[Rfam]
RNA sequence: UAGUUAUUUUCAGUGGCGAGGCGAAGCCGAAGAGGCGAAGUCGUAGGGAAACCGAGUCUGAAUAGGGCGACAGUCGCUGGGAAUAGACGCGAAACGGGAUGAUCUAUCCUUGACCAGGAUGAAGCUACGGUGAAACGUAGUGGAGGUCCGAACCAGUGUGGGUUGAAAACCGCUUGGAUGAGUUGAGGAUAGGGGUGAAAGGCCAAUCAAAUUCCGUGAUAGCUCGUU
Dot-bracket structure: ....(((((((((((((..(((...(((.....)))...)))...((....))..((((.....))))....)))))))))))))..((.(...((((((...((((((((((((.((((...((((((......))))))....))))...(((..((((........)))).)))..).))))))))))).(((.....)))......))))))......).))..
Numbered sequence: 001u002a003g004u005u006a007u008u009u010u011c012a013g014u015g016g017c018g019a020g021g022c023g024a025a026g027c028c029g030a031a032g033a034g035g036c037g038a039a040g041u042c043g044u045a046g047g048g049a050a051a052c053c054g055a056g057u058c059u060g061a062a063u064a065g066g067g068c069g070a071c072a073g074u075c076g077c078u079g080g081g082a083a084u085a086g087a088c089g090c091g092a093a094a095c096g097g098g099a100u101g102a103u104c105u106a107u108c109c110u111u112g113a114c115c116a117g118g119a120u121g122a123a124g125c126u127a128c129g130g131u132g133a134a135a136c137g138u139a140g141u142g143g144a145g146g147u148c149c150g151a152a153c154c155a156g157u158g159u160g161g162g163u164u165g166a167a168a169a170c171c172g173c174u175u176g177g178a179u180g181a182g183u184u185g186a187g188g189a190u191a192g193g194g195g196u197g198a199a200a201g202g203c204c205a206a207u208c209a210a211a212u213u214c215c216g217u218g219a220u221a222g223c224u225c226g227u228u
Stems, first nucleotide, its partner, number of pairs: 005085013020042003026036003046053002056068004088226002091223001095216006104192011115180001117149004124141006153177003158173004194204003